[Rfam]
RNA sequence: GUUGUCAGCAGUUGGGGGGUGAGAACGGCUCCAUGCAGGAGGUGACUGCUAAAUUCUCCAGCUCCUAGAUGGUGCCUUUCUUCAUCCCCUCCAA
Numbered sequence: 001g002u003u004g005u006c007a008g009c010a011g012u013u014g015g016g017g018g019g020u021g022a023g024a025a026c027g028g029c030u031c032c033a034u035g036c037a038g039g040a041g042g043u044g045a046c047u048g049c050u051a052a053a054u055u056c057u058c059c060a061g062c063u064c065c066u067a068g069a070u071g072g073u074g075c076c077u078u079u080c081u082u083c084a085u086c087c088c089c090u091c092c093a094a
Stems, first nucleotide, its partner, number of pairs: 014090009023080003027076003031072004037066005043060002045057001048055001

The record is a 94-nucleotide sequence from Marmota monax, which matches "mir-337 microRNA precursor family" in Rfam. The base pairs follow the family's consensus structure, which was predicted with RNAalifold. Lineage of the source: Eukaryota > Teleostomi > Sarcopterygii > Theria > Marmota.